RNA sequence: UUGCAGGUCAUUGGGGAGUAGCCGCCUUCCGCUUGCGAGAAGGGCCCGCGUCAACAGACUUGUCCUUGCCCCACGAGGACAUGGCGCGUGCAGUGAACACACCUGGCGAGACCUUUGACCGCACAACUUCGGGAAUAUGGCCGAAGGUGUUGUGCGGUCAAUUGCGUCCUUCGGCCCAAGGAACCCC
Numbered sequence: 001u002u003g004c005a006g007g008u009c010a011u012u013g014g015g016g017a018g019u020a021g022c023c024g025c026c027u028u029c030c031g032c033u034u035g036c037g038a039g040a041a042g043g044g045c046c047c048g049c050g051u052c053a054a055c056a057g058a059c060u061u062g063u064c065c066u067u068g069c070c071c072c073a074c075g076a077g078g079a080c081a082u083g084g085c086g087c088g089u090g091c092a093g094u095g096a097a098c099a100c101a102c103c104u105g106g107c108g109a110g111a112c113c114u115u116u117g118a119c120c121g122c123a124c125a126a127c128u129u130c131g132g133g134a135a136u137a138u139g140g141c142c143g144a145a146g147g148u149g150u151u152g153u154g155c156g157g158u159c160a161a162u163u164g165c166g167u168c169c170u171u172c173g174g175c176c177c178a179a180g181g182a183a184c185c186c187c
Base pairs, nucleotide, nucleotide: 026042027041044091045090047088048087049086050085051084052083053082061081062080063079064078065077066076067075068074093186095184098181
The record is a 187-nucleotide RNA sequence from Variovorax sp. Root473, which matches "Manganese Mn2+ riboswitch aptamer (yybP-ykoY)" in Rfam.
Rfam's curators write: This RNA was originally discovered in E. coli during a large scale screen and was named SraF. The family was later found to exist upstream of related families of protein genes in many bacteria, including the the yybP and ykoK genes in B. subtilis.
The organism belongs to Variovorax, within Bacteria.